[Rfam]
The family of this 71-nucleotide RNA sequence is "mir-790 microRNA precursor family". The match comes from Rfam's covariance-model search (69 bits). For this family Rfam cites "Repertoire and evolution of miRNA genes in four divergent nematode species" (de Wit et al., Genome Res, 2009). Gene Ontology terms of the family: miRNA-mediated post-transcriptional gene silencing and RISC complex.
RNA sequence: GACUGCUUGGCACUCGCGAACAUCGCGCUUCUUCCAGACAAGUCGCGACGUUUGCUUGGUGCCAAACAGGC
Numbered sequence: 001g002a003c004u005g006c007u008u009g010g011c012a013c014u015c016g017c018g019a020a021c022a023u024c025g026c027g028c029u030u031c032u033u034c035c036a037g038a039c040a041a042g043u044c045g046c047g048a049c050g051u052u053u054g055c056u057u058g059g060u061g062c063c064a065a066a067c068a069g070g071c
Stems, first nucleotide, its partner, number of pairs: 003069003007065003011061003016055002019052003023048005
Dot-bracket structure: ..(((.(((.(((..((.(((.(((((................))))).))).))...))).))).)))..